The family of this 59-nucleotide RNA from Canis lupus is "mir-1 microRNA precursor family". This family represents the microRNA (miRNA) mir-1 family. miRNAs are transcribed as ~70nt precursors (modelled here) and subsequently processed by the Dicer enzyme to give a ~22nt product. The organism belongs to Canis lupus, within Eukaryota.
RNA sequence: CAUACUUCUUUAUGUACCCAUAUGAACAUACAAUGCUAUGGAAUGUAAAGAAGUAUGUA
Numbered sequence: 001c002a003u004a005c006u007u008c009u010u011u012a013u014g015u016a017c018c019c020a021u022a023u024g025a026a027c028a029u030a031c032a033a034u035g036c037u038a039u040g041g042a043a044u045g046u047a048a049a050g051a052a053g054u055a056u057g058u059a
Stems, first nucleotide, its partner, number of pairs: 001057015018041005